[Rfam]
RNA sequence: AUAGUAUAAAGCAAAAUCCAUCGUAAGGUGAAGACGGAAAGCCUACGGGGCUCGCUUGCGAGAUGGCCGGGUUGCCGAA
Numbered sequence: 001a002u003a004g005u006a007u008a009a010a011g012c013a014a015a016a017u018c019c020a021u022c023g024u025a026a027g028g029u030g031a032a033g034a035c036g037g038a039a040a041g042c043c044u045a046c047g048g049g050g051c052u053c054g055c056u057u058g059c060g061a062g063a064u065g066g067c068c069g070g071g072u073u074g075c076c077g078a079a
Base pairs, nucleotide, nucleotide: 012037017032019030020029021028022027040073041072042071043070046069047068048067049064051062052061053060054059

c-di-GMP-I riboswitch aptamer: a 79-nucleotide RNA sequence from Pseudodesulfovibrio piezophilus.
Rfam's curators write: GEMM was predicted in a large-scale screen for bacterial structured RNA regulatory elements. Genes associated with GEMM are involved in a diverse array of functions, including chemotaxis regulation, signal transduction, secretion and chitin.
The family is grouped with related families in Rfam's "c-di-GMP_I riboswitch clan".
A search with the family's covariance model found it, with a score of 45 bits.